RNA sequence: UACUGUUUGUGAUGAAUUCUUAAGCAAUGGGAAUCUCUCUGAAAGAGGCUGAAGAGAAUUCUUGUGCUGAAACAGUA
Numbered sequence: 001u002a003c004u005g006u007u008u009g010u011g012a013u014g015a016a017u018u019c020u021u022a023a024g025c026a027a028u029g030g031g032a033a034u035c036u037c038u039c040u041g042a043a044a045g046a047g048g049c050u051g052a053a054g055a056g057a058a059u060u061c062u063u064g065u066g067c068u069g070a071a072a073c074a075g076u077a
Stems, first nucleotide, its partner, number of pairs: 001077007
The record is a 77-nucleotide RNA from Pachyramphus minor, which matches "Small nucleolar RNA SNORD79" in Rfam.
For this family Rfam cites "Purified box C/D snoRNPs are able to reproduce site-specific 2'-O-methylation of target RNA in vitro" (Galardi et al., Mol Cell Biol, 2002).
Its Rfam clan is "SNORD74 clan".
snoRNA U79 or Z22 is found in intron 7 of the gas5 gene in humans and is also present in mice.
It scores 74 bits against the family's covariance model.
The base pairs follow the family's consensus structure, which was predicted with PFOLD.
By type it is a C/D-box small nucleolar RNA.